[Rfam]
RNA sequence: UCAUCCUCUUGAAUAUCUACAAUGUUUUUAACUUUUUGUUUAAACUUAUCACGUUUAGCUCUGAUUUUAUCUAAAUCGACACUUCUUCUUGUCUUACGAGCAUAUUCUGUUGUCUUAUCUUGGAGUUG
Numbered sequence: 001u002c003a004u005c006c007u008c009u010u011g012a013a014u015a016u017c018u019a020c021a022a023u024g025u026u027u028u029u030a031a032c033u034u035u036u037u038g039u040u041u042a043a044a045c046u047u048a049u050c051a052c053g054u055u056u057a058g059c060u061c062u063g064a065u066u067u068u069a070u071c072u073a074a075a076u077c078g079a080c081a082c083u084u085c086u087u088c089u090u091g092u093c094u095u096a097c098g099a100g101c102a103u104a105u106u107c108u109g110u111u112g113u114c115u116u117a118u119c120u121u122g123g124a125g126u127u128g
Stems, first nucleotide, its partner, number of pairs: 019049001021047002025043002031037001056128009078093004099111004
The record is a 128-nucleotide sequence from Staphylococcus simiae, which matches "Staphylococcus sRNA sau-59" in Rfam. Lineage of the source: Bacteria > Bacillati > Caryophanales > Staphylococcaceae > Staphylococcus simiae. For this family Rfam cites "Identification of differentially expressed small non-protein-coding RNAs in Staphylococcus aureus displaying both the normal and the small-colony variant phenotype" (Abu-Qatouseh et al., J Mol Med (Berl), 2010). The sequence is in the family's curated seed alignment.